RNA sequence: UUCUUAUCAAGAGAGGUGGAGGGAAAAGGCCCUUUGAAGCUUCGGCAGCAGGUUAUUCUAACACUGUGCCAAUUCCUACAGACAAUGGUCUGAUAGAUAAGAA
Numbered sequence: 001u002u003c004u005u006a007u008c009a010a011g012a013g014a015g016g017u018g019g020a021g022g023g024a025a026a027a028g029g030c031c032c033u034u035u036g037a038a039g040c041u042u043c044g045g046c047a048g049c050a051g052g053u054u055a056u057u058c059u060a061a062c063a064c065u066g067u068g069c070c071a072a073u074u075c076c077u078a079c080a081g082a083c084a085a086u087g088g089u090c091u092g093a094u095a096g097a098u099a100a101g102a103a
Stems, first nucleotide, its partner, number of pairs: 001103008013043005021032003027077003044070004049066002052062004074095001079092005
RNA: SAM riboswitch aptamer (S box leader)